[Rfam]
Annotation
This 98-nucleotide RNA belongs to the Rfam family "DUF1874 RNA".

RNA sequence: GUUAGUCCCGCAGGGAGAAGGUCAUCCACAGGUAAGACCGUCCAAGAGGGCGGCGCCUUUUCCCUUCUGCCGAAGGGCAGAGUUGCGGGACAGGAGGU
Numbered sequence: 001g002u003u004a005g006u007c008c009c010g011c012a013g014g015g016a017g018a019a020g021g022u023c024a025u026c027c028a029c030a031g032g033u034a035a036g037a038c039c040g041u042c043c044a045a046g047a048g049g050g051c052g053g054c055g056c057c058u059u060u061u062c063c064c065u066u067c068u069g070c071c072g073a074a075g076g077g078c079a080g081a082g083u084u085g086c087g088g089g090a091c092a093g094g095a096g097g098u
Stems, first nucleotide, its partner, number of pairs: 005091009014063009036054001038053005065082001067080004
Dot-bracket structure: ....((((((((((((((((((.............(.(((((......))))))))))))))).(.((((......)))).)))))))))).......
The family's consensus secondary structure is taken from published work. It is annotated as a cis-regulatory element. Rfam's curators put it in the seed alignment.